RNA: Stem loopII regulatory element in POLB
RNA sequence: AGCCCAAUAGAAGUCUUAAUUUAUUUCUUAACCUUUGCUAUGGAGGGGGGUUUGGUGUUUUAACUGAUUAUUUCUCCUUCAUGCU
Numbered sequence: 001a002g003c004c005c006a007a008u009a010g011a012a013g014u015c016u017u018a019a020u021u022u023a024u025u026u027c028u029u030a031a032c033c034u035u036u037g038c039u040a041u042g043g044a045g046g047g048g049g050g051u052u053u054g055g056u057g058u059u060u061u062a063a064c065u066g067a068u069u070a071u072u073u074c075u076c077c078u079u080c081a082u083g084c085u
Base pairs, nucleotide, nucleotide: 009078010077012075016063017062018061019060025055026054032048033047034046035045036044038042